[Rfam]
RNA sequence: CCAAUGGAUGGCUAGGGUUCCGGCUGUAAAUAAACAGUGACUGGUCCGAGAGCCAUCGACCUUCUAAGUGGUAGCCAAUUUGCAUAUUGGUAAGAGGGUUACACGGCGGGAUAAAAGCCCGGGAGGA
Number, nucleotide and partner (000 for none) at each position: 001c000002c000003a000004a000005u000006g000007g057008a056009u055010g054011g053012c052013u000014a000015g047016g046017g000018u000019u000020c044021c043022g041023g038024c037025u036026g035027u034028a000029a000030a000031u000032a000033a000034a027035c026036a025037g024038u023039g000040a000041c022042u000043g021044g020045u000046c016047c015048g000049a000050g000051a000052g012053c011054c010055a009056u008057c007058g100059a099060c098061c097062u096063u095064c094065u093066a000067a000068g000069u000070g000071g000072u000073a000074g000075c000076c000077a000078a000079u000080u000081u000082g000083c000084a000085u000086a000087u000088u000089g000090g000091u000092a000093a065094g064095a063096g062097g061098g060099u059100u058101a000102c122103a000104c125105g000106g000107c000108g120109g119110g118111a000112u000113a000114a000115a000116a000117g000118c110119c109120c108121g000122g102123g000124a000125g104126g000127a000
Rfam assigns this 127-nucleotide RNA sequence from Saccharophagus degradans to the family "Guanidine-I riboswitch aptamer". Rfam describes the family as follows. This family represents a conserved RNA structure found upstream of the ykkC and yxkD genes in Bacillus subtilis and related genes in other bacteria. The function of this family is unclear although it has been suggested that it may function to switch on efflux pumps and detoxification systems in response to harmful environmental molecules. Taxonomically the source falls in Saccharophagus degradans (Bacteria, Gammaproteobacteria, Cellvibrionales, Cellvibrionaceae).